MIR2593 microRNA precursor family: a 115-nucleotide RNA sequence from Trifolium pratense. Taxonomically the source falls in Trifolium (Eukaryota, Viridiplantae, eudicotyledons, Hologalegina).
RNA sequence: AUAUAAGAGAAAAUCUACUUUUUAGAUUCAUUGAGAAUCAAAUGUAUCUGGUCUAUAUUAUAAGGUAAAUACAUUAGAUUCUCAAUGAAUCUAAAAAGUAGUUUUUCUCUUAUAU
Numbered sequence: 001a002u003a004u005a006a007g008a009g010a011a012a013a014u015c016u017a018c019u020u021u022u023u024a025g026a027u028u029c030a031u032u033g034a035g036a037a038u039c040a041a042a043u044g045u046a047u048c049u050g051g052u053c054u055a056u057a058u059u060a061u062a063a064g065g066u067a068a069a070u071a072c073a074u075u076a077g078a079u080u081c082u083c084a085a086u087g088a089a090u091c092u093a094a095a096a097a098g099u100a101g102u103u104u105u106u107c108u109c110u111u112a113u114a115u
Base pairs, nucleotide, nucleotide: 002114003113004112005111006110007109009107010106011105012104013103015101016100017099018098019097020096021095022094023093024092025091027089028088029087030086031085032084033083034082035081036080037079038078039077041075042074043073044072049067050066052064